Shown here is a 62-nucleotide sequence, a member of the family "L2-Alphaproteobacteria ribosomal protein leader". The sequence is in the family's curated seed alignment. Rfam classes the family as a cis-regulatory leader.
[Rfam]
RNA sequence: GCGGACCUACGGGGCCGUUCACCAUUGGCCCCUGGGUCAAACAAGCAAACGGAAGACAGCAA
Numbered sequence: 001g002c003g004g005a006c007c008u009a010c011g012g013g014g015c016c017g018u019u020c021a022c023c024a025u026u027g028g029c030c031c032c033u034g035g036g037u038c039a040a041a042c043a044a045g046c047a048a049a050c051g052g053a054a055g056a057c058a059g060c061a062a
Stems, first nucleotide, its partner, number of pairs: 001018004006014003027038004